[Rfam]
RNA sequence: UUCUUCUCGCAGAUCCGGUCCAACGCGUCGUCUGCCCUGUCUCGACGGGGUUCAGGCUUGAUGCCGAGGCAGCUCGAUACUCCCAAGGAGCACAUCUUAUUCCCCAUGAUGUAAAUUUCCAAUCGUCGGAUCUCAGAGCAAAGAAGGCUUCCAAGGGCGCCAAGUUCGCGGUAAAACGCUGAGCAUGGUGAGCUCUUGGAGGUUCGGAAAGCCGAAAUAUUCCACCCCUUUCACCGAGGUCGUCGAUCUAUGAGGUUGAGGAAAACCAUUUCAAUCCACAUUC
Numbered sequence: 001u002u003c004u005u006c007u008c009g010c011a012g013a014u015c016c017g018g019u020c021c022a023a024c025g026c027g028u029c030g031u032c033u034g035c036c037c038u039g040u041c042u043c044g045a046c047g048g049g050g051u052u053c054a055g056g057c058u059u060g061a062u063g064c065c066g067a068g069g070c071a072g073c074u075c076g077a078u079a080c081u082c083c084c085a086a087g088g089a090g091c092a093c094a095u096c097u098u099a100u101u102c103c104c105c106a107u108g109a110u111g112u113a114a115a116u117u118u119c120c121a122a123u124c125g126u127c128g129g130a131u132c133u134c135a136g137a138g139c140a141a142a143g144a145a146g147g148c149u150u151c152c153a154a155g156g157g158c159g160c161c162a163a164g165u166u167c168g169c170g171g172u173a174a175a176a177c178g179c180u181g182a183g184c185a186u187g188g189u190g191a192g193c194u195c196u197u198g199g200a201g202g203u204u205c206g207g208a209a210a211g212c213c214g215a216a217a218u219a220u221u222c223c224a225c226c227c228c229u230u231u232c233a234c235c236g237a238g239g240u241c242g243u244c245g246a247u248c249u250a251u252g253a254g255g256u257u258g259a260g261g262a263a264a265a266c267c268a269u270u271u272c273a274a275u276c277c278a279c280a281u282u283c
Base pairs, nucleotide, nucleotide: 011133012132013131014130015129016128017127018070019069020068021066026063027062028061029060030057031056032055033054034053036050037048038047039046040045078125081122087112089110091108143205144204148202149201150200151199152198153197158190159189160188161187162186164184165183166182167181168179169178211276214272215271216270217269218268227261228260229259230258233256234255235254238248239247240246241245
The record is a 283-nucleotide sequence from Coniochaeta hoffmannii, which matches "A. fumigatus sRNA Afu_309" in Rfam. The literature on the family includes a 2008 paper in Nucleic Acids Res by Jochl et al., "Small ncRNA transcriptome analysis from Aspergillus fumigatus suggests a novel mechanism for regulation of protein synthesis". The match comes from Rfam's covariance-model search (94 bits). The source organism's lineage runs through Eukaryota, Opisthokonta, saccharomyceta, leotiomyceta and Coniochaeta. The base pairs follow the family's consensus structure, which was predicted with WAR.